Rfam assigns this 252-nucleotide RNA from Desulfosarcina ovata to the family "Group II catalytic intron D1-D4-6".
Group II introns are found in rRNA, tRNA and mRNA of organelles in fungi, plants and protists, and also in mRNA in bacteria.
A search with the family's covariance model found it, with a score of 98 bits.
The source organism's lineage runs through Bacteria, Desulfobacteria, Desulfosarcinaceae, Desulfosarcina and Desulfosarcina ovata.
Nucleotides: 252
Base pairs, nucleotide, nucleotide: 012036013035014034015033016032020030021029022028023221025219026218038091040089041088045084046083047082050075051074052073053072054071059068060067061066109246110244112243113242114241115240116239117238132237133236134235135234136233169196170195171194174190175189176187177186201232202231203230204229205228206227207226208225210223211222
Number, partner (000 for none) and nucleotide at each position: 001000c002000a003000a004000g005000u006000c007000c008000c009000a010000c011000a012036u013035g014034a015033g016032u017000a018000a019000a020030g021029u022028u023221u024000a025219g026218c027000c028022a029021a030020c031000a032016g033015c034014u035013c036012a037000u038091u039000a040089g041088c042000g043000a044000a045084a046083u047082c048000c049000a050075c051074a052073g053072g054071c055000a056000a057000a058000a059068c060067c061066g062000g063000u064000a065000a066061c067060g068059g069000a070000a071054g072053u073052c074051u075050g076000a077000a078000g079000c080000u081000g082047g083046a084045u085000g086000g087000a088041g089040c090000g091038a092000g093000a094000u095000u096000g097000c098000a099000g100000g101000c102000u103000c104000u105000g106000u107000a108000u109246u110244g111000a112243g113242c114241c115240c116239c117238g118000a119000a120000a121000a122000a123000u124000g125000u126000a127000u128000c129000g130000u131000u132237g133236u134235g135234g136233u137000c138000c139000g140000u141000g142000a143000g144000g145000a146000u147000a148000a149000a150000u151000c152000c153000c154000g155000u156000c157000a158000g159000c160000g161000g162000g163000a164000u165000g166000a167000a168000a169196g170195c171194c172000g173000a174190c175189c176187c177186g178000a179000u180000g181000a182000a183000a184000g185000c186177c187176g188000a189175g190174g191000g192000a193000a194171g195170g196169c197000a198000g199000c200000a201232g202231a203230c204229u205228c206227g207226c208225a209000a210223g211222c212000g213000a214000u215000a216000c217000g218026g219025c220000g221023a222211g223210c224000g225208u226207g227206c228205g229204a230203g231202u232201c233136a234135c235134c236133a237132c238117c239116g240115g241114g242113g243112u244110c245000u246109g247000c248000g249000g250000c251000c252000a